This 166-nucleotide sequence from Paenibacillus pini belongs to the Rfam family "c-di-AMP riboswitch aptamer (ydaO/yuaA leader)". This family represents a conserved RNA structure found upstream of the ydaO and yuaA genes in Bacillus subtilis and related genes in other bacteria. The ydaO/yuaA element is thought to act as a genetic 'off' switch for the ydaO and yuaA genes in its native state. It is believed that the element may be triggered during osmotic shock leading to activation of ydaO, a predicted amino acid transporter gene, and members of the yuaA-yubG operon which code for KtrA and KtrB K+ transporters.
[Rfam]
RNA sequence: AUAUUUGUUGAGCCGAAACUUUCCAGAGUAAAGUGUGGGGGAUGUAAUCUGCAGUGCAAUCGGAAUAGAUUGUACUCUUGGGGUGAAUUGCGCAUUGUGCGCAAAGGGUUGUCUCCUCAAUCCGAAUCCGACAGCUAACCUCGCAGGCACAAAUUUAGGAGGAAUU
Numbered sequence: 001a002u003a004u005u006u007g008u009u010g011a012g013c014c015g016a017a018a019c020u021u022u023c024c025a026g027a028g029u030a031a032a033g034u035g036u037g038g039g040g041g042a043u044g045u046a047a048u049c050u051g052c053a054g055u056g057c058a059a060u061c062g063g064a065a066u067a068g069a070u071u072g073u074a075c076u077c078u079u080g081g082g083g084u085g086a087a088u089u090g091c092g093c094a095u096u097g098u099g100c101g102c103a104a105a106g107g108g109u110u111g112u113c114u115c116c117u118c119a120a121u122c123c124g125a126a127u128c129c130g131a132c133a134g135c136u137a138a139c140c141u142c143g144c145a146g147g148c149a150c151a152a153a154u155u156u157a158g159g160a161g162g163a164a165u166u
Stems, first nucleotide, its partner, number of pairs: 012148003018034005035144006045080002081129003089103004106123004